[Rfam]
A member of the RNA family "Early nodulin 40" from Miscanthus lutarioriparius, 246 nucleotides long. Pairs were carried over by alignment from the consensus structure, which is taken from published work. The source organism's lineage runs through Eukaryota, Viridiplantae, Euphyllophyta, Mesangiospermae and Miscanthus. Rfam links the family to the GO term nodulation. A reference for the family is Gultyaev and Roussis (2007), "Identification of conserved secondary structures and expansion segments in enod40 RNAs reveals new enod40 homologues in plants", Nucleic Acids Res. The family has 35 seed sequences and 341 matches in Rfam 15.1. By type it is a non-coding RNA gene.
RNA sequence: AUGGAGGAAGCUUGGCAGGAGUGUCUGCAUGGUUCUUGAGAGUUGCGUAAGCAGCAAAGCAGUGCAUGGAUGGUUGGAGGACAAUGGCCAGCUGAGCUGCUGCUGCUCCUCAUCAAUCAUCAGUUUGUAUUUGUCCAUGCCUCUUAUGGCCGUCUUCCCUGGCUCCCAGUCCCGGAAGGCCCGGUGAGGCGUGGACAGAGACCGGCAAGUCAGAGAUCGGCAAUGGUGAACUCCUGCAGGAGCCUA
Number, nucleotide and partner (000 for none) at each position: 001a000002u000003g000004g000005a000006g000007g000008a000009a000010g000011c000012u000013u000014g000015g000016c000017a000018g000019g000020a000021g000022u000023g000024u000025c000026u000027g000028c000029a000030u000031g000032g000033u000034u000035c000036u000037u000038g000039a000040g000041a000042g000043u000044u000045g000046c000047g000048u000049a000050a000051g000052c000053a000054g000055c000056a000057a000058a000059g000060c000061a000062g000063u000064g000065c000066a000067u000068g000069g000070a000071u000072g109073g108074u000075u000076g000077g000078a000079g000080g000081a000082c000083a000084a000085u000086g000087g000088c000089c000090a000091g000092c000093u000094g000095a000096g000097c000098u000099g000100c000101u000102g000103c000104u000105g000106c000107u000108c073109c072110u000111c000112a000113u000114c000115a000116a000117u000118c000119a000120u000121c000122a000123g202124u201125u200126u197127g196128u195129a000130u000131u000132u000133g000134u000135c000136c000137a000138u000139g000140c189141c188142u187143c000144u000145u000146a000147u000148g000149g000150c000151c000152g000153u000154c000155u000156u000157c000158c000159c000160u000161g000162g000163c000164u000165c000166c000167c000168a000169g000170u000171c000172c000173c000174g000175g000176a000177a000178g000179g000180c000181c000182c000183g000184g000185u000186g000187a142188g141189g140190c000191g000192u000193g000194g000195a128196c127197a126198g000199a000200g125201a124202c123203c000204g000205g000206c000207a000208a000209g000210u000211c000212a000213g000214a000215g000216a000217u000218c000219g000220g000221c000222a000223a000224u000225g000226g000227u000228g000229a000230a000231c242232u241233c240234c000235u000236g000237c000238a000239g000240g233241a232242g231243c000244c000245u000246a000